[Rfam]
RNA sequence: UGGUACGGAGAAGCGUCAGUAUUCGCAGCCACAAACGAGUCCUAGUGACUCUAUUCUGCUGUGAGGAAAGUCCCUGAACCGAGGACAGAAAGUGUCCGGACCCGGGGUCCGCAGCCGCGGCAUGACACUCAUCAAGGCCAUGAUACGAGCCGAGUGACGUCGUGGUGAUCGUUGCAGCAAAGUGACGCCGAUCAUUAACAGCAUAGGGCUUACUCUCUCCGUACC
Numbered sequence: 001u002g003g004u005a006c007g008g009a010g011a012a013g014c015g016u017c018a019g020u021a022u023u024c025g026c027a028g029c030c031a032c033a034a035a036c037g038a039g040u041c042c043u044a045g046u047g048a049c050u051c052u053a054u055u056c057u058g059c060u061g062u063g064a065g066g067a068a069a070g071u072c073c074c075u076g077a078a079c080c081g082a083g084g085a086c087a088g089a090a091a092g093u094g095u096c097c098g099g100a101c102c103c104g105g106g107g108u109c110c111g112c113a114g115c116c117g118c119g120g121c122a123u124g125a126c127a128c129u130c131a132u133c134a135a136g137g138c139c140a141u142g143a144u145a146c147g148a149g150c151c152g153a154g155u156g157a158c159g160u161c162g163u164g165g166u167g168a169u170c171g172u173u174g175c176a177g178c179a180a181a182g183u184g185a186c187g188c189c190g191a192u193c194a195u196u197a198a199c200a201g202c203a204u205a206g207g208g209c210u211u212a213c214u215c216u217c218u219c220c221g222u223a224c225c
Stems, first nucleotide, its partner, number of pairs: 002225010015192003019188002023064007037051005068211003072208004084096004097111006113166001115164001118162004123157001127155004

Annotation:
Shown here is a 225-nucleotide RNA sequence from Plectus sambesii, a member of the family "RNase MRP". It is annotated as a ribozyme. The base pairs follow the family's consensus structure, which is taken from published work.